RNA sequence: GUCCUACGAUAGAGCAAUUCUCGUAUAAAAUCAGGGAUAGGGCCUGAACGUUUCUACCGUCUGACCGUAAAUUGGACGACUACGAGGAGAGGACUUUACAUU
Numbered sequence: 001g002u003c004c005u006a007c008g009a010u011a012g013a014g015c016a017a018u019u020c021u022c023g024u025a026u027a028a029a030a031u032c033a034g035g036g037a038u039a040g041g042g043c044c045u046g047a048a049c050g051u052u053u054c055u056a057c058c059g060u061c062u063g064a065c066c067g068u069a070a071a072u073u074g075g076a077c078g079a080c081u082a083c084g085a086g087g088a089g090a091g092g093a094c095u096u097u098a099c100a101u102u
Stems, first nucleotide, its partner, number of pairs: 018088008031047005058078007
About this RNA:
Purine riboswitch aptamer: a 102-nucleotide RNA from Brevibacillus fluminis. NCBI's taxonomy places the organism under Bacteria, Bacillati, Bacillota, Paenibacillaceae, Brevibacillus. From the family's description: Riboswitches are metabolite binding domains within certain messenger RNAs that serve as precision sensors for their corresponding targets. A search with the family's covariance model found it, with a score of 76 bits.